[Rfam]
Annotation: A member of the RNA family "Group II catalytic intron D1-D4-3" from Photobacterium lipolyticum, 170 nucleotides long. A search with the family's covariance model found it, with a score of 55 bits.
RNA sequence: UCACUGGCUAACGGUGGGGUCUGAAGGAAGCCAUAGGAAGUUAGAGGUACACAACUAACCGUAACCUGUUUCGGCGGUGUUGGUGGGUAAGCGUCCAAAAUAGCGCGAAGCCCAAUACUUAGUCAGACCAAUAUCGUGCUUGAGGGUGGGAUUUCUAACAGGGAGCCAGU
Number, nucleotide and partner (000 for none) at each position: 001u017002c016003a015004c014005u013006g012007g000008c000009u000010a000011a000012c006013g005014g004015u003016g002017g001018g000019g000020u000021c000022u000023g000024a000025a000026g000027g000028a000029a000030g000031c000032c000033a170034u169035a000036g000037g166038a000039a000040g000041u158042u157043a156044g155045a154046g000047g152048u150049a000050c148051a147052c146053a000054a000055c000056u000057a000058a000059c000060c000061g000062u000063a000064a000065c145066c144067u143068g000069u000070u000071u000072c000073g000074g137075c136076g135077g000078u133079g132080u131081u130082g129083g128084u127085g113086g112087g111088u110089a000090a000091g106092c105093g104094u103095c000096c000097a000098a000099a000100a000101u000102a000103g094104c093105g092106c091107g000108a000109a000110g088111c087112c086113c085114a000115a000116u000117a000118c000119u000120u000121a000122g000123u000124c000125a000126g000127a084128c083129c082130a081131a080132u079133a078134u000135c076136g075137u074138g000139c000140u000141u000142g000143a067144g066145g065146g052147u051148g050149g000150g048151a000152u047153u000154u045155c044156u043157a042158a041159c000160a000161g000162g000163g000164a000165g000166c037167c000168a000169g034170u033